The record is a 106-nucleotide RNA, which matches "Glycine riboswitch aptamer" in Rfam.
[Rfam]
RNA sequence: ACUCGCCGAGCUGGAGAGAGGUCACCGGGCAUGCCCGGGACGAUCCGCCGAAGGGGCACGCGGCUCACGCCGCUGAACUCUCAGGCAAAAGGACAGCGGGAGCGGC
Numbered sequence: 001a002c003u004c005g006c007c008g009a010g011c012u013g014g015a016g017a018g019a020g021g022u023c024a025c026c027g028g029g030c031a032u033g034c035c036c037g038g039g040a041c042g043a044u045c046c047g048c049c050g051a052a053g054g055g056g057c058a059c060g061c062g063g064c065u066c067a068c069g070c071c072g073c074u075g076a077a078c079u080c081u082c083a084g085g086c087a088a089a090a091g092g093a094c095a096g097c098g099g100g101a102g103c104g105g106c
Stems, first nucleotide, its partner, number of pairs: 007100001010097004020045004047086003050082002054080003060073002
Dot-bracket structure: ......(..((((......((((..................)))).(((((..(((...((..........))....))))).))).......))))..)......